[Rfam]
RNA: MIR394 microRNA precursor family
Organism: Vigna angularis
RNA sequence: CUAACAGAGUUUAUUGGCAUUCUGUCCACCUCCACUUUCUUCUCUUCUCCACGUCCAGUAUCCAUCCAUGACGUUGGAGGUGGGCAUACUGCCAACUCAGUUCUGUUUG
Numbered sequence: 001c002u003a004a005c006a007g008a009g010u011u012u013a014u015u016g017g018c019a020u021u022c023u024g025u026c027c028a029c030c031u032c033c034a035c036u037u038u039c040u041u042c043u044c045u046u047c048u049c050c051a052c053g054u055c056c057a058g059u060a061u062c063c064a065u066c067c068a069u070g071a072c073g074u075u076g077g078a079g080g081u082g083g084g085c086a087u088a089c090u091g092c093c094a095a096c097u098c099a100g101u102u103c104u105g106u107u108u109g
Stems, first nucleotide, its partner, number of pairs: 011099001014095006023086011